Record summary
This 80-nucleotide RNA sequence from Anaerosphaera aminiphila belongs to the Rfam family "THF (Tetrahydrofolate) riboswitch aptamer".

RNA sequence: AACAGAGUAGGUAAAGAGCGUCAAGUGUUAAGAAAUGGGAAGUUGUUCUUAAACGAAGAUUCUUUAUCGCAUCCGCUGGU
Numbered sequence: 001a002a003c004a005g006a007g008u009a010g011g012u013a014a015a016g017a018g019c020g021u022c023a024a025g026u027g028u029u030a031a032g033a034a035a036u037g038g039g040a041a042g043u044u045g046u047u048c049u050u051a052a053a054c055g056a057a058g059a060u061u062c063u064u065u066a067u068c069g070c071a072u073c074c075g076c077u078g079g080u
Base pairs, nucleotide, nucleotide: 001080003078004077005076010068011067012066013065014064015063016062017061018060019058021056025054026053028052029051030050031049032048033047034046038074039073040072042070